[Rfam]
Pseudomonas sRNA CrcZ: a 400-nucleotide sequence from Azotobacter vinelandii. It is one of the family's seed sequences. By type it is a small RNA.

RNA sequence: ACAACAAAAAUAAAAAACGGUAUCUCAAGAACAACAAUACGAAACGACUCUGACAUAACAAGAACAAGCACGGCAGAGACGGCGCAAACUGAUUUUUUUGGAGAGGAUUCGCGCUCCUGGGGUCUAGGCCCCGCAGCCGGACAGAGAACAAUAAAACUACCUCGAGGUAGCGCCCGGACUGGUUGGAUCACUUGGUGAUCAUCGCGAUAUCGGCGAUCAAAGAAAUACGUUUGCUCUUGGCCCCGGCUGGGGCCGACUGAAGCACUUUCUUCAGAGUGGCGGUCGACAAAAACAACAACAGAUCGAGCACAAGAAGAACAAAGCACAAAGUCGAUUUCGAGGGGAGCUCAGGCUCCCCUCUGUGCUUCGAGCGAUCCCCCUUUCCGGAAAACCCGGCUCA
Numbered sequence: 001a002c003a004a005c006a007a008a009a010a011u012a013a014a015a016a017a018c019g020g021u022a023u024c025u026c027a028a029g030a031a032c033a034a035c036a037a038u039a040c041g042a043a044a045c046g047a048c049u050c051u052g053a054c055a056u057a058a059c060a061a062g063a064a065c066a067a068g069c070a071c072g073g074c075a076g077a078g079a080c081g082g083c084g085c086a087a088a089c090u091g092a093u094u095u096u097u098u099u100g101g102a103g104a105g106g107a108u109u110c111g112c113g114c115u116c117c118u119g120g121g122g123u124c125u126a127g128g129c130c131c132c133g134c135a136g137c138c139g140g141a142c143a144g145a146g147a148a149c150a151a152u153a154a155a156a157c158u159a160c161c162u163c164g165a166g167g168u169a170g171c172g173c174c175c176g177g178a179c180u181g182g183u184u185g186g187a188u189c190a191c192u193u194g195g196u197g198a199u200c201a202u203c204g205c206g207a208u209a210u211c212g213g214c215g216a217u218c219a220a221a222g223a224a225a226u227a228c229g230u231u232u233g234c235u236c237u238u239g240g241c242c243c244c245g246g247c248u249g250g251g252g253c254c255g256a257c258u259g260a261a262g263c264a265c266u267u268u269c270u271u272c273a274g275a276g277u278g279g280c281g282g283u284c285g286a287c288a289a290a291a292a293c294a295a296c297a298a299c300a301g302a303u304c305g306a307g308c309a310c311a312a313g314a315a316g317a318a319c320a321a322a323g324c325a326c327a328a329a330g331u332c333g334a335u336u337u338c339g340a341g342g343g344g345a346g347c348u349c350a351g352g353c354u355c356c357c358c359u360c361u362g363u364g365c366u367u368c369g370a371g372c373g374a375u376c377c378c379c380c381u382u383u384c385c386g387g388a389a390a391a392c393c394c395g396g397c398u399c400a
Stems, first nucleotide, its partner, number of pairs: 045081002048078004096222005110215003134185007157170005240253005274382003278378002280305004321367004340359008